[Rfam]
RNA: c-di-GMP-I riboswitch aptamer
Organism: Acetivibrio clariflavus
RNA sequence: UUUCGAUACUGGCAAACCCAAUGAAAAUUGGGGACGCAAAACUACAGGUCUAAGGUAUUCAAUACUAUGACGGCUGAGUUGCCGAA
Numbered sequence: 001u002u003u004c005g006a007u008a009c010u011g012g013c014a015a016a017c018c019c020a021a022u023g024a025a026a027a028u029u030g031g032g033g034a035c036g037c038a039a040a041a042c043u044a045c046a047g048g049u050c051u052a053a054g055g056u057a058u059u060c061a062a063u064a065c066u067a068u069g070a071c072g073g074c075u076g077a078g079u080u081g082c083c084g085a086a
Stems, first nucleotide, its partner, number of pairs: 012037002017032006040080004045076003048071003055065004